antisense RNA of dnaA mRNA: an 81-nucleotide RNA sequence from Xenorhabdus innexi.

[Rfam]
RNA sequence: UUUUGCAUUGGCUUUGCGUGCCAUAAUGCUGUUGCCGACAGCAUGUAAAAGGUGGGUUUUACCUAAACCGGUGCCGCCAUA
Numbered sequence: 001u002u003u004u005g006c007a008u009u010g011g012c013u014u015u016g017c018g019u020g021c022c023a024u025a026a027u028g029c030u031g032u033u034g035c036c037g038a039c040a041g042c043a044u045g046u047a048a049a050a051g052g053u054g055g056g057u058u059u060u061a062c063c064u065a066a067a068c069c070g071g072u073g074c075c076g077c078c079a080u081a
Stems, first nucleotide, its partner, number of pairs: 004043003009038001011036001013034001016032003020029002051078004056074002061072003